[Rfam]
RNA sequence: AUCACCUGGAGAUCUUGUUAACAUGUAGAUUCUGAUUCAUUAAUCUGGGAUGGAAUCUGAGAUUCUGCAUUUCUAACAAGUUCCAAGGUGAUGCUGA
Numbered sequence: 001a002u003c004a005c006c007u008g009g010a011g012a013u014c015u016u017g018u019u020a021a022c023a024u025g026u027a028g029a030u031u032c033u034g035a036u037u038c039a040u041u042a043a044u045c046u047g048g049g050a051u052g053g054a055a056u057c058u059g060a061g062a063u064u065c066u067g068c069a070u071u072u073c074u075a076a077c078a079a080g081u082u083c084c085a086a087g088g089u090g091a092u093g094c095u096g097a
Stems, first nucleotide, its partner, number of pairs: 003090003009084001011082001014080007021072001023070001025068005031062003

Shown here is a 97-nucleotide RNA sequence from Cervus elaphus, a member of the family "mir-544 microRNA precursor family".
A search with the family's covariance model found it, with a score of 76 bits.
Rfam 15.1 lists 10,750 matches to the family in 132 species.
The organism belongs to Cervus elaphus, within Eukaryota.
Its family is annotated with miRNA-mediated post-transcriptional gene silencing and RISC complex in the Gene Ontology.
A reference for the family is Chiang et al. (2010), "Mammalian microRNAs: experimental evaluation of novel and previously annotated genes", Genes Dev.